[Rfam]
RNA sequence: GGGACCGGCGGCCCGCUGACCUCCCCAAGAACCGGGAGAAAGAACUACCCGCCCCCCACCCUCCCGCGCAUGUCACCCGUCCGAGUGACGCGCUUGCGACGGAGGGAUACGGACCGUUACGUUCGCCGCGACAACCGCAAACGCAUACGGCCCCCGGCCGGGACGGCAAUCCCGAACGAGGGCCUGACCAAUCAGGAAGAGCAGAACUUCCCG
Numbered sequence: 001g002g003g004a005c006c007g008g009c010g011g012c013c014c015g016c017u018g019a020c021c022u023c024c025c026c027a028a029g030a031a032c033c034g035g036g037a038g039a040a041a042g043a044a045c046u047a048c049c050c051g052c053c054c055c056c057c058a059c060c061c062u063c064c065c066g067c068g069c070a071u072g073u074c075a076c077c078c079g080u081c082c083g084a085g086u087g088a089c090g091c092g093c094u095u096g097c098g099a100c101g102g103a104g105g106g107a108u109a110c111g112g113a114c115c116g117u118u119a120c121g122u123u124c125g126c127c128g129c130g131a132c133a134a135c136c137g138c139a140a141a142c143g144c145a146u147a148c149g150g151c152c153c154c155c156g157g158c159c160g161g162g163a164c165g166g167c168a169a170u171c172c173c174g175a176a177c178g179a180g181g182g183c184c185u186g187a188c189c190a191a192u193c194a195g196g197a198a199g200a201g202c203a204g205a206a207c208u209u210c211c212c213g
Stems, first nucleotide, its partner, number of pairs: 007192001008189001014068003018065001073088004078083001098127001100125003149184005155178002160173004195211005

A member of the RNA family "Streptomyces sRNA 4677" from Streptomyces sp. M41(2017), 213 nucleotides long.
The literature on the family includes a 2014 paper in PLoS One by Hindra et al., "Complex intra-operonic dynamics mediated by a small RNA in Streptomyces coelicolor".
Located in the intergenic region between anti-sigma factor SCO4677 gene and a putative regulatory protein gene SCO4676. scr4677 expression requires the SCO4677 activity and scr4677 sRNA itself seem to affect the levels of the SCO4676-associated transcripts.
Rfam classes the family as a small RNA.
Pairs were carried over by alignment from the consensus structure.